Shown here is a 183-nucleotide sequence from Trichonephila clavata, a member of the family "Wolbachia sRNA 46". On this family, see Mayoral et al., Proc Natl Acad Sci U S A 2014: "Wolbachia small noncoding RNAs and their role in cross-kingdom communications".
RNA sequence: GUAAAUUGCACAGCAAAUGGUGUCAUUCCAGUGCUUGACACUGGAAUCCAGAAAUUUUGCUUAUAACUGAGCUGAUGAGCUAAAGGUAGUUGUCUUACGCUAAAACAAACGUUUUUAAUUAAGUUGCAUAGAAGCUGGAUCCCAGUGUCUGGGCACUGGGAUGACACCCCACUGGUGGGAAUU
Numbered sequence: 001g002u003a004a005a006u007u008g009c010a011c012a013g014c015a016a017a018u019g020g021u022g023u024c025a026u027u028c029c030a031g032u033g034c035u036u037g038a039c040a041c042u043g044g045a046a047u048c049c050a051g052a053a054a055u056u057u058u059g060c061u062u063a064u065a066a067c068u069g070a071g072c073u074g075a076u077g078a079g080c081u082a083a084a085g086g087u088a089g090u091u092g093u094c095u096u097a098c099g100c101u102a103a104a105a106c107a108a109a110c111g112u113u114u115u116u117a118a119u120u121a122a123g124u125u126g127c128a129u130a131g132a133a134g135c136u137g138g139a140u141c142c143c144a145g146u147g148u149c150u151g152g153g154c155a156c157u158g159g160g161a162u163g164a165c166a167c168c169c170c171a172c173u174g175g176u177g178g179g180a181a182u183u
Stems, first nucleotide, its partner, number of pairs: 011178001013176002021166016037149008046140006